[Rfam]
RNA sequence: UCCCCUCUUGAGGCCUGCUGACGUAAACUACAGAGAAGUCUGCAUAGCUGCAAGGGGGGA
Numbered sequence: 001u002c003c004c005c006u007c008u009u010g011a012g013g014c015c016u017g018c019u020g021a022c023g024u025a026a027a028c029u030a031c032a033g034a035g036a037a038g039u040c041u042g043c044a045u046a047g048c049u050g051c052a053a054g055g056g057g058g059g060a
Base pairs, nucleotide, nucleotide: 001060002059003058004057005056006055007054008053010051012049013048016044017043020040021039022038023031024030
About this RNA:
MAT2A 3'UTR stem loop A: a 60-nucleotide RNA from Silurus meridionalis. Rfam 15.1 lists 595 matches to the family in 507 species. It scores 41 bits against the family's covariance model. The literature on the family includes a 2011 paper in Genome Res by Parker et al., "New families of human regulatory RNA structures identified by comparative analysis of vertebrate genomes".